[Rfam]
RNA: Group II catalytic intron D1-D4-3
Organism: Sodalis glossinidius
RNA sequence: GCAAGGGUGACUGAGCGUGGGGAGGAAGUGUGGAGCGAAAUGCGAGCCGAUGAACAAGAAUCGGAUAGAAGGCGCUGGCGAGCAGGGUGAGCGGGCGAGAAACCGUGAAACUCUUGUGGUCAAGGCGAGGUGGCGUAGUUCCGGCGGUUGUGCAGUGAAGGAGUGCGUUC
Numbered sequence: 001g002c003a004a005g006g007g008u009g010a011c012u013g014a015g016c017g018u019g020g021g022g023a024g025g026a027a028g029u030g031u032g033g034a035g036c037g038a039a040a041u042g043c044g045a046g047c048c049g050a051u052g053a054a055c056a057a058g059a060a061u062c063g064g065a066u067a068g069a070a071g072g073c074g075c076u077g078g079c080g081a082g083c084a085g086g087g088u089g090a091g092c093g094g095g096c097g098a099g100a101a102a103c104c105g106u107g108a109a110a111c112u113c114u115u116g117u118g119g120u121c122a123a124g125g126c127g128a129g130g131u132g133g134c135g136u137a138g139u140u141c142c143g144g145c146g147g148u149u150g151u152g153c154a155g156u157g158a159a160g161g162a163g164u165g166c167g168u169u170c
Stems, first nucleotide, its partner, number of pairs: 001016002005012002028170001030168003036161001040156001041154004045149005061144005072136003076132002079129001082126002085113004091106004